[Rfam]
L31-Actinobacteria ribosomal protein leader: a 42-nucleotide RNA from Nonomuraea cypriaca.
Lineage of the source: Bacteria > Bacillati > Actinomycetota > Streptosporangiaceae > Nonomuraea.
A search with the family's covariance model found it, with a score of 49 bits.
RNA sequence: GCGGUUCCGGUUCACGCCAUGCGUGACGGCGACCCGGCGGCC
Numbered sequence: 001g002c003g004g005u006u007c008c009g010g011u012u013c014a015c016g017c018c019a020u021g022c023g024u025g026a027c028g029g030c031g032a033c034c035c036g037g038c039g040g041c042c
Stems, first nucleotide, its partner, number of pairs: 003042003007037004015031004020026001